[Rfam]
RNA sequence: UAUGCAUGUAGAGGUGCGCUAUUUAUCAGUAGCAAGUUGUAGGGUGAUGCUGUUGAUAACUUGUAAAAGGGAAUAGCGCCGAAGCAGAACGUAUUUAUCAGGUCGUUUUGUUGGGGUUGUUAAUGAAUAGUUGCAACACUGCCAUAGUAUUUGUUUUUCACUAUGGAGCGCUACUGUAGAU
Dot-bracket structure: .......((((....(((((((((.......((((((((.................))))))))......)))))))))...(((((((((..(......)..)))))))))((.((((.((((.....)))))))).)).(((((((...........)))))))....)))).......
This 181-nucleotide RNA from Veronia nyctiphanis belongs to the Rfam family "Lysine riboswitch aptamer".
NCBI's taxonomy places the organism under Bacteria, Pseudomonadati, Pseudomonadota, Gammaproteobacteria, Veronia.
Riboswitches are metabolite binding domains within certain messenger RNAs that serve as precision sensors for their corresponding targets.